[Rfam]
RNA sequence: GAGACACGCUUAUGGGGCAGAACUUGCUUCAGUGGGGCUUUGGUGCUCACUGAGUCUGCCUCUUGAAUGUCACU
Number, nucleotide and partner (000 for none) at each position: 001g000002a074003g073004a000005c000006a070007c069008g000009c000010u066011u065012a064013u000014g062015g061016g060017g059018c058019a057020g000021a000022a055023c054024u000025u000026g000027c000028u000029u053030c052031a051032g050033u049034g048035g047036g046037g044038c043039u000040u000041u000042g000043g038044u037045g000046c036047u035048c034049a033050c032051u031052g030053a029054g023055u022056c000057u019058g018059c017060c016061u015062c014063u000064u012065g011066a010067a000068u000069g007070u006071c000072a000073c003074u002